[Rfam]
This 163-nucleotide sequence from Scyliorhinus torazame belongs to the Rfam family "Small Cajal body specific RNA 1". The source organism's lineage runs through Eukaryota, Chordata, Galeomorphii, Carcharhiniformes and Scyliorhinus. From the family's description: scaRNAs are a specific class of small nuclear RNAs which localise to the Cajal bodies and guide the modification of RNA polymerase II transcribed spliceosomal RNAs U1, U2, U4, U5 and U12. ACA35 belong to the H/ACA box class of guide RNAs as it has the predicted hairpin-hinge-hairpin-tail structure, conserved H/ACA-box motifs and is found associated with GAR1. By type it is a small Cajal body RNA. Rfam links the family to the GO terms nucleolus, Cajal body and RNA processing. A reference for the family is Darzacq et al. (2002), "Cajal body-specific small nuclear RNAs: a novel class of 2'-O-methylation and pseudouridylation guide RNAs", EMBO J.

RNA sequence: AUGCACCAGAUACUAACCUGGCUGUCGAUGUCACAGCUCUGUUAUAGAUCUGAGACAAUCUGUGACCGCUGGGUCCAAGUGGUGCUAUAUCAAAAAAAAAAAACCGUGAGCAUAUUAGCUCAGUGUGCAGAGAAACACUGAGUUAUAACUCAGAGGUACAGCA
Dot-bracket structure: ..((((((.......(((.(((.((((.((((..((.(((.....))).))..)))).)....))).))).))).....)))))).................(((.................((((........))))(((((....)))))..)))......